[Rfam]
Nucleotides: 264
Base pairs, nucleotide, nucleotide: 001264002263003262004261005260006259009057010056011055012030013029014028015027017025019023034054035053036052037051038050062257063256064255065254066253067252071248073246074245075244077242078241079240080239081238082237083236084235085234086233090229091228093227094226095225096224097223102218104216105215106214112211114209115208116207117206118205119204120203121199122198123197124196125195126194127190128189130188131187132186133185134184135180137178138177139176140175146171147170148169149168154163155162156161
Number, partner (000 for none) and nucleotide at each position: 001264c002263c003262g004261u005260g006259c007000u008000a009057g010056c011055c012030g013029g014028g015027g016000a017025g018000g019023c020000a021000g022000c023019g024000g025017u026000g027015c028014c029013c030012u031000g032000u033000a034054c035053u036052c037051a038050c039000a040000a041000u042000c043000c044000g045000c046000u047000a048000u049000a050038g051037u052036g053035a054034g055011g056010g057009u058000g059000a060000u061000g062257u063256c064255u065254g066253u067252u068000c069000u070000c071248g072000g073246u074245a075244c076000a077242g078241c079240g080239c081238u082237u083236g084235a085234c086233a087000g088000c089000c090229u091228g092000c093227c094226c095225g096224u097223g098000g099000a100000a101000a102218a103000c104216g105215g106214c107000g108000u109000u110000g111000a112211u113000g114209c115208u116207u117206u118205g119204g120203u121199c122198u123197u124196a125195c126194g127190c128189a129000a130188u131187a132186g133185g134184a135180g136000c137178c138177u139176g140175u141000g142000a143000a144000u145000c146171g147170u148169g149168u150000c151000a152000g153000g154163g155162u156161c157000g158000g159000a160000a161156g162155g163154c164000a165000g166000c167000a168149g169148c170147a171146c172000u173000a174000a175140g176139c177138a178137g179000u180135c181000u182000a183000c184134u185133u186132c187131u188130g189128u190127g191000u192000g193000u194126u195125g196124u197123a198122a199121g200000g201000g202000u203120g204119c205118u206117g207116a208115g209114g210000a211112g212000g213000a214106g215105u216104c217000g218102u219000g220000g221000a222000a223097c224096a225095c226094g227093g228091u229090a230000a231000c232000g233086u234085g235084u236083u237082g238081g239080g240079c241078g242077u243000u244075g245074u246073a247000a248071c249000a250000a251000a252067a253066a254065c255064a256063g257062a258000u259006g260005c261004a262003c263002g264001g
This 264-nucleotide sequence from Anaerotignum neopropionicum belongs to the Rfam family "Bacterial large signal recognition particle RNA". A search with the family's covariance model found it, with a score of 168 bits. It is annotated as a non-coding RNA gene. Rfam's curators write: The signal recognition particle (SRP) is a universally conserved ribonucleoprotein involved in the co-translational targeting of proteins to membranes. The base pairs follow the family's consensus structure, which is taken from published work.